RNA sequence: GGAAUAUAAGAAACCGUCUCUUAAUUUUUAACUAAAAAAGCUAAAACCCGGCUCUUAAAUAAGAUAUUUAUGAGCCGAUUUUUAGUUUUUUUUAGUUAAAAAUUAAGAGAUAGUUUCUUAUAUUUC
Numbered sequence: 001g002g003a004a005u006a007u008a009a010g011a012a013a014c015c016g017u018c019u020c021u022u023a024a025u026u027u028u029u030a031a032c033u034a035a036a037a038a039a040g041c042u043a044a045a046a047c048c049c050g051g052c053u054c055u056u057a058a059a060u061a062a063g064a065u066a067u068u069u070a071u072g073a074g075c076c077g078a079u080u081u082u083u084a085g086u087u088u089u090u091u092u093u094a095g096u097u098a099a100a101a102a103u104u105a106a107g108a109g110a111u112a113g114u115u116u117c118u119u120a121u122a123u124u125u126c
Stems, first nucleotide, its partner, number of pairs: 001126014016111024041085006

Shown here is a 126-nucleotide RNA from Brassica oleracea, a member of the family "MIR9563 microRNA precursor family". Pairs were carried over by alignment from the consensus structure, which was predicted with RNAalifold. It scores 119 bits against the family's covariance model. The source organism's lineage runs through Eukaryota, Embryophyta, Tracheophyta, Mesangiospermae and Brassica oleracea.